This 84-nucleotide sequence belongs to the Rfam family "RT-18 RNA". It is one of the family's seed sequences. Rfam classes the family as a small RNA. The base pairs follow the family's consensus structure, which is taken from published work.

RNA sequence: CACCUCUUGGUGAAGAACGAUGCCGAAGGGACGCGGUUUAGUACAUCCGAAAGGACGCUGGAAAGACCGCGAGGCAACAAGGAG
Numbered sequence: 001c002a003c004c005u006c007u008u009g010g011u012g013a014a015g016a017a018c019g020a021u022g023c024c025g026a027a028g029g030g031a032c033g034c035g036g037u038u039u040a041g042u043a044c045a046u047c048c049g050a051a052a053g054g055a056c057g058c059u060g061g062a063a064a065g066a067c068c069g070c071g072a073g074g075c076a077a078c079a080a081g082g083a084g
Stems, first nucleotide, its partner, number of pairs: 001012004021076004032071007044060002046055003